[Rfam]
Rfam assigns this 62-nucleotide RNA from Cognatundibacterium jejuense to the family "Betaproteobacteria toxic small RNA". Overexpression in amino aid rich medium attenuates growth, suggesting role in repressing amino acid intake and metabolism. A reference for the family is Kimelman et al. (2012), "A vast collection of microbial genes that are toxic to bacteria", Genome Res.
RNA sequence: UGUCUCCUCCACCUACUCCUUUGGUGGAUUCAGCCCGAAGCAAGUUCUUCGGGCUAUUUUUU
Dot-bracket structure: .......((((((.........))))))...((((((((........)))))))).......
Numbered sequence: 001u002g003u004c005u006c007c008u009c010c011a012c013c014u015a016c017u018c019c020u021u022u023g024g025u026g027g028a029u030u031c032a033g034c035c036c037g038a039a040g041c042a043a044g045u046u047c048u049u050c051g052g053g054c055u056a057u058u059u060u061u062u
Stems, first nucleotide, its partner, number of pairs: 008028006032055008